[Rfam]
The family of this 64-nucleotide RNA sequence is "RAGATH-18 RNA".
The base pairs follow the family's consensus structure, which is taken from published work.
Rfam's curators write: Actinobacteria, Firmicutes, Fusobacteria, Thermotogae (1 example).

RNA sequence: CCUUUGGAGUGUUACACCAAACUAGAGUAGUCUUAGGACAAAAUAGAACACUAUGAGGAAGGAA
Numbered sequence: 001c002c003u004u005u006g007g008a009g010u011g012u013u014a015c016a017c018c019a020a021a022c023u024a025g026a027g028u029a030g031u032c033u034u035a036g037g038a039c040a041a042a043a044u045a046g047a048a049c050a051c052u053a054u055g056a057g058g059a060a061g062g063a064a
Stems, first nucleotide, its partner, number of pairs: 001062005009051005022046003030039003